[Rfam]
RNA sequence: CAUUUCAUCUUACCAUACAAUAUUAGUUUGAUAAUAUUAAUUUGCUAAUACUGUCAGGUAAAGAUGGCCUA
Numbered sequence: 001c002a003u004u005u006c007a008u009c010u011u012a013c014c015a016u017a018c019a020a021u022a023u024u025a026g027u028u029u030g031a032u033a034a035u036a037u038u039a040a041u042u043u044g045c046u047a048a049u050a051c052u053g054u055c056a057g058g059u060a061a062a063g064a065u066g067g068c069c070u071a
Base pairs, nucleotide, nucleotide: 002070005067006066007065008064009063010061011060012059013058014057017054018053019052021050022049023048024047025046026045027044